Rfam assigns this 81-nucleotide RNA from Diceros bicornis to the family "mir-769 microRNA precursor family". The source organism's lineage runs through Eukaryota, Metazoa, Bilateria, Rhinocerotidae and Diceros bicornis.
RNA sequence: GGGCGCUGACCUGAGACUUCUGGGUUUUGAGCUGUGAUGUUGCUUCUGAGCUGAGUUCUCAAGGGUCUUGGUUCAGGGUCG
Numbered sequence: 001g002g003g004c005g006c007u008g009a010c011c012u013g014a015g016a017c018u019u020c021u022g023g024g025u026u027u028u029g030a031g032c033u034g035u036g037a038u039g040u041u042g043c044u045u046c047u048g049a050g051c052u053g054a055g056u057u058c059u060c061a062a063g064g065g066u067c068u069u070g071g072u073u074c075a076g077g078g079u080c081g
Stems, first nucleotide, its partner, number of pairs: 003079002006076003011071009022060003027055002030052004
The base pairs follow the family's consensus structure, which was predicted with RNAalifold. A search with the family's covariance model found it, with a score of 79 bits.